[Rfam]
RNA sequence: UCGAAGCUCCAUCUACAAAUGGAUAAGAUCCGAUCUUAGUGUAGAGUAUAGGAGUUAUUGAAAAAAGAAAAGAAAGGAGCAAGAAACUCUUUCUUGUCCUGUCAAGAGGACAUUAUUGCUCCUUUCUU
Numbered sequence: 001u002c003g004a005a006g007c008u009c010c011a012u013c014u015a016c017a018a019a020u021g022g023a024u025a026a027g028a029u030c031c032g033a034u035c036u037u038a039g040u041g042u043a044g045a046g047u048a049u050a051g052g053a054g055u056u057a058u059u060g061a062a063a064a065a066a067g068a069a070a071a072g073a074a075a076g077g078a079g080c081a082a083g084a085a086a087c088u089c090u091u092u093c094u095u096g097u098c099c100u101g102u103c104a105a106g107a108g109g110a111c112a113u114u115a116u117u118g119c120u121c122c123u124u125u126c127u128u
Base pairs, nucleotide, nucleotide: 008023009022010021011020012019073125074124075123076122077121078120079119080118081117082116084114085113091108092107093106094105095104
RNA: Plastid-psbA-1 3UTR RNA
Organism: Jasminum polyanthum